[Rfam]
Nucleotides: 101
Stems, first nucleotide, its partner, number of pairs: 001097007010089002015084001016080005034062001036060001
Number, partner (000 for none) and nucleotide at each position: 001097g002096g003095c004094u005093g006092g007091u008000c009000u010089g011088a012000g013000u014000u015084a016080a017079g018078u019077g020076g021000u022000g023000u024000u025000c026000a027000c028000a029000a030000c031000u032000g033000a034062u035000u036060g037000a038000u039000c040000a041000c042000a043000a044000c045000c046000a047000g048000u049000u050000a051000u052000a053000g054000a055000u056000u057000u058000a059000c060036u061000u062034g063000g064000c065000c066000u067000u068000u069000u070000c071000c072000a073000c074000u075000u076020c077019c078018a079017c080016u081000g082000c083000u084015u085000c086000a087000c088011u089010u090000c091007a092006c093005u094004a095003g096002c097001c098000u099000u100000a101000c
Shown here is a 101-nucleotide sequence from Nomascus leucogenys, a member of the family "Y RNA".
Rfam classes the family as a non-coding RNA gene.
From the family's description: Y RNAs are components of the Ro ribonucleoprotein particle (Ro RNP), in association with Ro60 and La proteins.
Lineage of the source: Eukaryota > Opisthokonta > Metazoa > Bilateria > Nomascus.
For this family Rfam cites "Ro ribonucleoproteins contribute to the resistance of Deinococcus radiodurans to ultraviolet irradiation" (Chen et al., Genes Dev, 2000).